[Rfam]
Shown here is a 109-nucleotide RNA sequence from Paramicrobacterium humi, a member of the family "SAM (S-adenosyl methionine) riboswitch aptamer". Rfam describes the family as follows. SAM-IV is a mRNA element that regulates gene expression via direct sensing of S-adenosylmethionine (SAM or AdoMet). SAM-IV riboswitches share conserved nucleotide positions with the previously described SAM-I riboswitches sequence analysis and molecular recognition experiments suggest that SAM-I and SAM-IV riboswitches share similar ligand binding sites, but have different scaffolds. Its family is annotated with regulation of gene expression and S-adenosylmethionine metabolic process in the Gene Ontology. It scores 56 bits against the family's covariance model. The source organism's lineage runs through Bacteria, Bacillati, Micrococcales, Microbacteriaceae and Paramicrobacterium.
RNA sequence: AAUCACGAGUCCCAACAUCACCUGAUCGGUUGGGCGGCAACCCCCAGAGCUGUAGUGGGGUGCCCAGGGAACGAUUCGGCCCGUACGUUCGCGCGGGCAAGUCCGGCUA
Numbered sequence: 001a002a003u004c005a006c007g008a009g010u011c012c013c014a015a016c017a018u019c020a021c022c023u024g025a026u027c028g029g030u031u032g033g034g035c036g037g038c039a040a041c042c043c044c045c046a047g048a049g050c051u052g053u054a055g056u057g058g059g060g061u062g063c064c065c066a067g068g069g070a071a072c073g074a075u076u077c078g079g080c081c082c083g084u085a086c087g088u089u090c091g092c093g094c095g096g097g098c099a100a101g102u103c104c105g106g107c108u109a
Stems, first nucleotide, its partner, number of pairs: 001076004009035001011034006036064003041060003045055001079098006086091001